tRNA: a 73-nucleotide RNA sequence from Ursus americanus. It scores 45 bits against the family's covariance model. The source organism's lineage runs through Eukaryota, Eumetazoa, Gnathostomata, Laurasiatheria and Ursus. Clan: tRNA clan. The family's RNA type in Rfam is transfer RNA.
RNA sequence: GCCUGGCUGGCUCAGUCAGUAGAGUGUGAGACUUCUGAUCUCAGGAUCGUGAGUUCAAGCCCCAUACUGGGCA
Numbered sequence: 001g002c003c004u005g006g007c008u009g010g011c012u013c014a015g016u017c018a019g020u021a022g023a024g025u026g027u028g029a030g031a032c033u034u035c036u037g038a039u040c041u042c043a044g045g046a047u048c049g050u051g052a053g054u055u056c057a058a059g060c061c062c063c064a065u066a067c068u069g070g071g072c073a
Stems, first nucleotide, its partner, number of pairs: 001072006010025004027043005049065003053061001